RNA sequence: CUUGACCGAGCCGAGGAGGACCGGCGUCUCCCGCCCCUGCCCGUACGUGGCCAGCAGCGCCCGCGCCUC
Number, nucleotide and partner (000 for none) at each position: 001c000002u000003u000004g000005a000006c000007c000008g000009a000010g000011c000012c000013g000014a000015g021016g000017a000018g000019g000020a000021c015022c000023g000024g000025c000026g000027u000028c065029u000030c063031c000032c059033g058034c000035c000036c000037c054038u053039g052040c000041c050042c049043g048044u000045a000046c000047g000048u043049g042050g041051c000052c039053a038054g037055c000056a000057g000058c033059g032060c000061c000062c000063g030064c000065g028066c000067c000068u000069c000
Shown here is a 69-nucleotide sequence from Nonomuraea phyllanthi, a member of the family "ASpks TB sRNA".
It is annotated as an antisense RNA.
The literature on the family includes a 2009 paper in Mol Microbiol by Arnvig and Young, "Identification of small RNAs in Mycobacterium tuberculosis".